[Rfam]
RNA sequence: CUCUCUCCCAACCCUUGUACCAGAGUGAUAAUGGGAACUCUGGUACAGAGGAUGGCUGAAAGGA
Numbered sequence: 001c002u003c004u005c006u007c008c009c010a011a012c013c014c015u016u017g018u019a020c021c022a023g024a025g026u027g028a029u030a031a032u033g034g035g036a037a038c039u040c041u042g043g044u045a046c047a048g049a050g051g052a053u054g055g056c057u058g059a060a061a062g063g064a
Base pairs, nucleotide, nucleotide: 001062002061004059005058007055008054013048016047017046018045019044020043021042022041
Shown here is a 64-nucleotide RNA sequence from Xenopus tropicalis, a member of the family "mir-150 microRNA precursor family". Its family is annotated with RISC complex and miRNA-mediated post-transcriptional gene silencing in the Gene Ontology. Lineage of the source: Eukaryota > Chordata > Sarcopterygii > Pipidae > Silurana. The base pairs follow the family's consensus structure, which was predicted with RNAalifold.